This 139-nucleotide RNA from Pipistrellus kuhlii belongs to the Rfam family "Small nucleolar RNA SNORA44". The family's consensus secondary structure was predicted with PFOLD. It is annotated as an H/ACA-box small nucleolar RNA.
RNA sequence: UAGUAUUGCCCAAAGGACUCUUAAGAAAAUAUAAUGUGUAGCCAUGGGAUUUCCAACUGUACUCACGAGCAACCUGGAGAGAACAUGACAGCUCAGGACAGCACAAUACCUGCACCUGUCACUCACCUUUCCUAUAAGA
Numbered sequence: 001u002a003g004u005a006u007u008g009c010c011c012a013a014a015g016g017a018c019u020c021u022u023a024a025g026a027a028a029a030u031a032u033a034a035u036g037u038g039u040a041g042c043c044a045u046g047g048g049a050u051u052u053c054c055a056a057c058u059g060u061a062c063u064c065a066c067g068a069g070c071a072a073c074c075u076g077g078a079g080a081g082a083a084c085a086u087g088a089c090a091g092c093u094c095a096g097g098a099c100a101g102c103a104c105a106a107u108a109c110c111u112g113c114a115c116c117u118g119u120c121a122c123u124c125a126c127c128u129u130u131c132c133u134a135u136a137a138g139a
Base pairs, nucleotide, nucleotide: 011047016043018041019040076132077131078130079129080128081127091119092118094112095111096110097109
Dot-bracket structure: ..........(....(.((....................)).)...)............................((((((.........((.((((...........)))).....)).......)))))).......

The source organism's lineage runs through Eukaryota, Bilateria, Euteleostomi, Chiroptera and Pipistrellus. Clan: SNORA44 clan. ACA44 is a member of the H/ACA class of snoRNA that guide the sites of modification of uridines to pseudouridines. The family has 27 seed sequences and 1,056 matches in Rfam 15.1.